[Rfam]
RNA sequence: AUACAUAGUGUGAAGCAUCUCCUCCUCCCUGAUGUUUCACACGACCUGUUCUGGAUGUCGCUCUCCUCCUCCCUAGCGGCACCAGAGAUAGAAAGGCGGCGCCUACCUCCUCCCGGGCGCCGCCUUUUUU
Numbered sequence: 001a002u003a004c005a006u007a008g009u010g011u012g013a014a015g016c017a018u019c020u021c022c023u024c025c026u027c028c029c030u031g032a033u034g035u036u037u038c039a040c041a042c043g044a045c046c047u048g049u050u051c052u053g054g055a056u057g058u059c060g061c062u063c064u065c066c067u068c069c070u071c072c073c074u075a076g077c078g079g080c081a082c083c084a085g086a087g088a089u090a091g092a093a094a095g096g097c098g099g100c101g102c103c104u105a106c107c108u109c110c111u112c113c114c115g116g117g118c119g120c121c122g123c124c125u126u127u128u129u130u
Base pairs, nucleotide, nucleotide: 008042009041011039012038013037014036015035016034017033053082058078094125095124096123097122098121099120100119101118102117103116104115
This 130-nucleotide sequence from Poseidonocella sedimentorum belongs to the Rfam family "Alphaproteobacterial ar14". For this family Rfam cites "A survey of sRNA families in alpha-proteobacteria" (del Val et al., RNA Biol, 2012). By type it is a small RNA. The source organism's lineage runs through Bacteria, Pseudomonadati, Rhodobacterales, Roseobacteraceae and Poseidonocella.